[Rfam]
RNA sequence: CUUCAACGAGCCCAGCCACAGCGGCCGUUCGGCGUCCCGGCCCUGGCCAUAGGUGGCCAGCAACGCCUGGGCCUC
Numbered sequence: 001c002u003u004c005a006a007c008g009a010g011c012c013c014a015g016c017c018a019c020a021g022c023g024g025c026c027g028u029u030c031g032g033c034g035u036c037c038c039g040g041c042c043c044u045g046g047c048c049a050u051a052g053g054u055g056g057c058c059a060g061c062a063a064c065g066c067c068u069g070g071g072c073c074u075c
Stems, first nucleotide, its partner, number of pairs: 015025003033069001038065002043060003047056003